[Rfam]
Rfam assigns this 235-nucleotide RNA sequence from Syntrophotalea carbinolica to the family "Group II catalytic intron D1-D4-6".

RNA sequence: AAAGUCCCGUCCGGGGAGUUGUCCGUUCACCCCGGUAGCUCAAGGGAGCGGCGUCUUGGUAACAAGGGGUCGUAAGUUCCUAAUUGGCAAAGCAGCAGGCCGUAACGCAAGUGAACCUGGAUGUAGCCUCGUAACUCAAUAUGAAGAUGCCGACCCUGUGGUCAAAUGGGGAAGGCCGCUGCCACGGGCUCAGAUAGCGGAAGCAGCCCGUGUGAUCUUCCGGGGUAGCAGGGAC
Dot-bracket structure: ...........(((((..([.[[.)....))))).(.((....(((((((((.(((((....))))).)))))...)).)).....)).)................................((.((((((...........(((((((((..(((...........)))...)))......((((((((........]].]..))))))))..))))))))))))).)......
Overview:
The match comes from Rfam's covariance-model search (81 bits). Its family is annotated with Group II intron splicing in the Gene Ontology. Rfam's curators write: Group II introns are found in rRNA, tRNA and mRNA of organelles in fungi, plants and protists, and also in mRNA in bacteria.